Annotation
This 105-nucleotide RNA sequence from Rhodococcus tukisamuensis belongs to the Rfam family "mraW RNA". Pairs were carried over by alignment from the consensus structure, which is taken from published work. Rfam classes the family as a cis-regulatory element. Lineage of the source: Bacteria > Bacillati > Actinomycetota > Actinomycetes > Rhodococcus.
[Rfam]
RNA sequence: AACGGCGAGUGCCGCGAGGCCUCUGCCCGACACCGACCCUGACGCACUUCCCCAGCGCCAGGUUUGGUCAAUCGGACAGGGACCCCGAGUCAUUCGCCCCAGAUC
Numbered sequence: 001a002a003c004g005g006c007g008a009g010u011g012c013c014g015c016g017a018g019g020c021c022u023c024u025g026c027c028c029g030a031c032a033c034c035g036a037c038c039c040u041g042a043c044g045c046a047c048u049u050c051c052c053c054a055g056c057g058c059c060a061g062g063u064u065u066g067g068u069c070a071a072u073c074g075g076a077c078a079g080g081g082a083c084c085c086c087g088a089g090u091c092a093u094u095c096g097c098c099c100c101a102g103a104u105c
Stems, first nucleotide, its partner, number of pairs: 010092002013089001015087002018084002021081005027075004032068005038062004043057003